[Rfam]
Rfam assigns this 68-nucleotide sequence from Massilia violaceinigra to the family "int-alpA RNA".
RNA sequence: GCCAGCUCUAGGCUGAUCCCCGAAAACCCGUUUCCCUGGCGGGCUGGGCUGGCUUCUUCAUAUUGGGG
Dot-bracket structure: ((((((((..((.......)).....((((...[[[[[[))))..)))))))).........]]]]]]
It is annotated as a small RNA. Rfam's curators write: Acidobacteria (1 example), Planctomycetes (1 example), Proteobacteria.